[Rfam]
RNA sequence: UAUACACAGAUUUUCCGAGUCGUCAUUUCUAAAGCCAAGGCCAUGAAAUGCUGACCAGUGGGCCUUUUGAGAAAUUGGGGGGCCUCCCAUAUUUGGAAAGGAGAAUCUUAAACCACUGG
Numbered sequence: 001u002a003u004a005c006a007c008a009g010a011u012u013u014u015c016c017g018a019g020u021c022g023u024c025a026u027u028u029c030u031a032a033a034g035c036c037a038a039g040g041c042c043a044u045g046a047a048a049u050g051c052u053g054a055c056c057a058g059u060g061g062g063c064c065u066u067u068u069g070a071g072a073a074a075u076u077g078g079g080g081g082g083c084c085u086c087c088c089a090u091a092u093u094u095g096g097a098a099a100g101g102a103g104a105a106u107c108u109u110a111a112a113c114c115a116c117u118g119g
Base pairs, nucleotide, nucleotide: 011105012104013103014102015101016100019055020054021053022052024050025049026048027047028046029045034041035040060085061084062083063082064081065080066079067078068077069076070075086096087095

Shown here is a 119-nucleotide sequence from Peptoclostridium acidaminophilum, a member of the family "Molybdenum/Tungsten riboswitch aptamer (Moco RNA motif)". The source organism's lineage runs through Bacteria, Bacillati, Bacillota, Peptostreptococcales and Peptoclostridium.